[Rfam]
RNA: SAH (S-adenosyl-L-homocysteine) riboswitch aptamer
RNA sequence: CCGGCCGAGGGGCGCUGCAGCAGGUUCGUCCUGUCAGGCUCGGUCGGGGCGUUGUCCGCGCAGCGGACGCUCAACGCACAACGGCGCCCAUUCGCA
Dot-bracket structure: .(((((((............((((.....))))......)))))))..................................................
Numbered sequence: 001c002c003g004g005c006c007g008a009g010g011g012g013c014g015c016u017g018c019a020g021c022a023g024g025u026u027c028g029u030c031c032u033g034u035c036a037g038g039c040u041c042g043g044u045c046g047g048g049g050c051g052u053u054g055u056c057c058g059c060g061c062a063g064c065g066g067a068c069g070c071u072c073a074a075c076g077c078a079c080a081a082c083g084g085c086g087c088c089c090a091u092u093c094g095c096a
Stems, first nucleotide, its partner, number of pairs: 002046007021033004